This 81-nucleotide sequence from Catenibacterium sp. CAG:290 belongs to the Rfam family "ZMP/ZTP riboswitch aptamer (pfl RNA motif)".
The family's consensus secondary structure is taken from published work.
Taxonomically the source falls in Catenibacterium (Bacteria, Bacillati, Bacillota, Erysipelotrichia).
The family has 185 seed sequences and 3,295 matches in Rfam 15.1.

[Rfam]
RNA sequence: ACUGUAUUAUACGACUGACGGAAGUGGAAUUAACCACAUGGAGUAUAAUUUCUUGAAGAGCCGACCGUCUGGGCAACGUCC
Numbered sequence: 001a002c003u004g005u006a007u008u009a010u011a012c013g014a015c016u017g018a019c020g021g022a023a024g025u026g027g028a029a030u031u032a033a034c035c036a037c038a039u040g041g042a043g044u045a046u047a048a049u050u051u052c053u054u055g056a057a058g059a060g061c062c063g064a065c066c067g068u069c070u071g072g073g074c075a076a077c078g079u080c081c
Base pairs, nucleotide, nucleotide: 004051006049007048008047009046010045011044012043015040017069018068019067020066021065024037025036026035027034060074061073062072